[Rfam]
RNA sequence: AAAGAACUGUAGGGACUACAGGGUUAGCCUAGGGUAUAUAAGAUAGAUAUAGCGUUGAUUCGAUCAUUUGUCUUUUUCUAGGAAAUUUCUAUUAAAUAGAAAUAGUUCACUAAUUAUUAGUU
Numbered sequence: 001a002a003a004g005a006a007c008u009g010u011a012g013g014g015a016c017u018a019c020a021g022g023g024u025u026a027g028c029c030u031a032g033g034g035u036a037u038a039u040a041a042g043a044u045a046g047a048u049a050u051a052g053c054g055u056u057g058a059u060u061c062g063a064u065c066a067u068u069u070g071u072c073u074u075u076u077u078c079u080a081g082g083a084a085a086u087u088u089c090u091a092u093u094a095a096a097u098a099g100a101a102a103u104a105g106u107u108c109a110c111u112a113a114u115u116a117u118u119a120g121u122u
Stems, first nucleotide, its partner, number of pairs: 007021006023093001025091001028082007038071005049059002052056001099108003
The record is a 122-nucleotide RNA from Enterococcus termitis, which matches "Enterococcus sRNA 70" in Rfam. The family's RNA type in Rfam is small RNA. Taxonomically the source falls in Enterococcus (Bacteria, Bacillota, Bacilli, Lactobacillales).